RNA sequence: CGGGCGGUGUACUCCCAGAUGGACUCCUCGUCGGCGAGGGAGUCCUCGCCGAAGUAGGUGCCGUCGGCGACGGUCCUCAGGACGGCGUCCUCGCCGUAGGGGCCGGGGCCGACCUGGUCGAUGCGGCCGUGGGCGAGCAGGAACACCUGGUCGGAGGGGCUGCCGAAGGAGGUCAGCUCCUGGCCCGCCUCGAAGUCGAUCUGGCGGCACCGCUGGGCGAGUUCGCCGAGCACCUCCAGGUCCUCGUACUCGCGCAGCAGCGGGAGCUCGCCGAGCUCGGCCGGGAUCACCUGGACCUGGGUCCCGGUCUUGAUGAACUCGACGCGUCCGUCGCCGACGGAGUAGCUCAGCCGGCGGUUGACGCGGUAGGUGCCGCCCUGGACCGAGACCCACGGGAGCAUCUUCAGGAGCCACCGCGAGGUGAUCUCCUGCAUCUGCGGCGCGGACUUGGUCGUGGUUGCCAAGUUCCGCGCGGCCGAUGUGCCGAGACUGCGCUGCGG
Numbered sequence: 001c002g003g004g005c006g007g008u009g010u011a012c013u014c015c016c017a018g019a020u021g022g023a024c025u026c027c028u029c030g031u032c033g034g035c036g037a038g039g040g041a042g043u044c045c046u047c048g049c050c051g052a053a054g055u056a057g058g059u060g061c062c063g064u065c066g067g068c069g070a071c072g073g074u075c076c077u078c079a080g081g082a083c084g085g086c087g088u089c090c091u092c093g094c095c096g097u098a099g100g101g102g103c104c105g106g107g108g109c110c111g112a113c114c115u116g117g118u119c120g121a122u123g124c125g126g127c128c129g130u131g132g133g134c135g136a137g138c139a140g141g142a143a144c145a146c147c148u149g150g151u152c153g154g155a156g157g158g159g160c161u162g163c164c165g166a167a168g169g170a171g172g173u174c175a176g177c178u179c180c181u182g183g184c185c186c187g188c189c190u191c192g193a194a195g196u197c198g199a200u201c202u203g204g205c206g207g208c209a210c211c212g213c214u215g216g217g218c219g220a221g222u223u224c225g226c227c228g229a230g231c232a233c234c235u236c237c238a239g240g241u242c243c244u245c246g247u248a249c250u251c252g253c254g255c256a257g258c259a260g261c262g263g264g265a266g267c268u269c270g271c272c273g274a275g276c277u278c279g280g281c282c283g284g285g286a287u288c289a290c291c292u293g294g295a296c297c298u299g300g301g302u303c304c305c306g307g308u309c310u311u312g313a314u315g316a317a318c319u320c321g322a323c324g325c326g327u328c329c330g331u332c333g334c335c336g337a338c339g340g341a342g343u344a345g346c347u348c349a350g351c352c353g354g355c356g357g358u359u360g361a362c363g364c365g366g367u368a369g370g371u372g373c374c375g376c377c378c379u380g381g382a383c384c385g386a387g388a389c390c391c392a393c394g395g396g397a398g399c400a401u402c403u404u405c406a407g408g409a410g411c412c413a414c415c416g417c418g419a420g421g422u423g424a425u426c427u428c429c430u431g432c433a434u435c436u437g438c439g440g441c442g443c444g445g446a447c448u449u450g451g452u453c454g455u456g457g458u459u460g461c462c463a464a465g466u467u468c469c470g471c472g473c474g475g476c477c478g479a480u481g482u483g484c485c486g487a488g489a490c491u492g493c494g495c496u497g498c499g500g
Stems, first nucleotide, its partner, number of pairs: 006390003010386001015381002018328002021325001025322002031316002040311003044307002048305001049301002052298001054233002059228002062225002065111004073103001075102004082097005117222002122217001126213002129210002133205002136202002141197001143196002150191001154189001157186004162177001165174002235295003240290002244286002249283001253279002256277003260271003329342001331340002353377005361371002391431002394428004399423003403418001405416001407415001437476002440473001442471005447465006484500003487496002